[Rfam]
RNA sequence: GGGGAUAAACCUUUCGCGGAAUAAGCAUUACGGACCCGGGGGCGGUACCCGGCGCCUCCACCAGUUUACAAGAUGCGCCCGUUUACGGAUAUGUGGGCUGGCGCAUCCCUCUGGGGGCGAAACAGGAUCGACGUGUGUAGUAAAGGCGUAAGUUUCUCCCGGCAUGGUACCACCGUUAUCGGGCCAAGCUAGUAGUUGCGAACGACAACUCCAAGCAGGUCGCCCUCGCCGCUUAA
Numbered sequence: 001g002g003g004g005a006u007a008a009a010c011c012u013u014u015c016g017c018g019g020a021a022u023a024a025g026c027a028u029u030a031c032g033g034a035c036c037c038g039g040g041g042g043c044g045g046u047a048c049c050c051g052g053c054g055c056c057u058c059c060a061c062c063a064g065u066u067u068a069c070a071a072g073a074u075g076c077g078c079c080c081g082u083u084u085a086c087g088g089a090u091a092u093g094u095g096g097g098c099u100g101g102c103g104c105a106u107c108c109c110u111c112u113g114g115g116g117g118c119g120a121a122a123c124a125g126g127a128u129c130g131a132c133g134u135g136u137g138u139a140g141u142a143a144a145g146g147c148g149u150a151a152g153u154u155u156c157u158c159c160c161g162g163c164a165u166g167g168u169a170c171c172a173c174c175g176u177u178a179u180c181g182g183g184c185c186a187a188g189c190u191a192g193u194a195g196u197u198g199c200g201a202a203c204g205a206c207a208a209c210u211c212c213a214a215g216c217a218g219g220u221c222g223c224c225c226u227c228g229c230c231g232c233u234u235a236a
Base pairs, nucleotide, nucleotide: 001159002158003157004156005155015148016147017146026137027136028135030134031133032132036052037051038050039049040048053119054118055117056116057115058114059113160175161174162173
A member of the RNA family "permuted transfer-messenger RNA" from Oceanibaculum indicum, 236 nucleotides long. The match comes from Rfam's covariance-model search (146 bits). From the family's description: Bacterial tmRNA, also known as 10Sa RNA or SsrA, is named for its dual tRNA and mRNA-like properties. By type it is a non-coding RNA gene.